[Rfam]
RNA sequence: GUUCAGUGAUGAAUCCAAACAGACAAGCAUAUGGCUGAGCGUUGGUGAUGCCAGCUCUUCUCCUGAGAAC
Numbered sequence: 001g002u003u004c005a006g007u008g009a010u011g012a013a014u015c016c017a018a019a020c021a022g023a024c025a026a027g028c029a030u031a032u033g034g035c036u037g038a039g040c041g042u043u044g045g046u047g048a049u050g051c052c053a054g055c056u057c058u059u060c061u062c063c064u065g066a067g068a069a070c
Stems, first nucleotide, its partner, number of pairs: 001070004

Record summary
Shown here is a 70-nucleotide RNA sequence from Apteryx australis, a member of the family "Small nucleolar RNA SNORD27". It is annotated as a C/D-box small nucleolar RNA. NCBI's taxonomy places the organism under Eukaryota, Opisthokonta, Metazoa, Eumetazoa, Apteryx.